[Rfam]
RNA sequence: AACUUUUUGUGAAUUAUGUUUCUUAAGAAAAAUCUCUGAACAUAUGAACUCCAUAGUGAUUUCAGUGCAUUACUGGGAGAAGCU
Numbered sequence: 001a002a003c004u005u006u007u008u009g010u011g012a013a014u015u016a017u018g019u020u021u022c023u024u025a026a027g028a029a030a031a032a033u034c035u036c037u038g039a040a041c042a043u044a045u046g047a048a049c050u051c052c053a054u055a056g057u058g059a060u061u062u063c064a065g066u067g068c069a070u071u072a073c074u075g076g077g078a079g080a081a082g083c084u
Stems, first nucleotide, its partner, number of pairs: 003082006
The family of this 84-nucleotide sequence from Sinosuthora webbiana is "Small nucleolar RNA SNORD72". On this family, see Huttenhofer et al., EMBO J 2001: "RNomics: an experimental approach that identifies 201 candidates for novel, small, non-messenger RNAs in mouse". The pairing is the family consensus, mapped onto this sequence. It is annotated as a C/D-box small nucleolar RNA. Lineage of the source: Eukaryota > Dipnotetrapodomorpha > Dinosauria > Sylviidae > Sinosuthora. Rfam's curators write: snoRNA HBII-240 belongs to the CD family of snoRNAs. It is the human orthologue of the mouse MBII-240 and is predicted to guide 2'O-ribose methylation of the large 28S rRNA at residue U4590. Rfam links the family to the GO terms RNA processing and nucleolus.